The family of this 106-nucleotide RNA sequence from Companilactobacillus versmoldensis is "23S methyl RNA motif".
RNA sequence: UCGUUACGCGUUUUUAUCAGAAGUAAUUUUGAUAAAAGCAUGUAAAUCGAUCAGUUUCAUAACGCACGCCCUUGCUGUGGUCUUCACCGAGGGGAUGCGUUUUUUU
Numbered sequence: 001u002c003g004u005u006a007c008g009c010g011u012u013u014u015u016a017u018c019a020g021a022a023g024u025a026a027u028u029u030u031g032a033u034a035a036a037a038g039c040a041u042g043u044a045a046a047u048c049g050a051u052c053a054g055u056u057u058c059a060u061a062a063c064g065c066a067c068g069c070c071c072u073u074g075c076u077g078u079g080g081u082c083u084u085c086a087c088c089g090a091g092g093g094g095a096u097g098c099g100u101u102u103u104u105u106u
Base pairs, nucleotide, nucleotide: 004045005044006043007042008041010039011038012037013036014035015034016033017032018031019030061101062100063099064098065097066096069093070092071091072090073089074088077087078086079085

For this family Rfam cites "Identification of 22 candidate structured RNAs in bacteria using the CMfinder comparative genomics pipeline" (Weinberg et al., Nucleic Acids Res, 2007). The match comes from Rfam's covariance-model search (58 bits).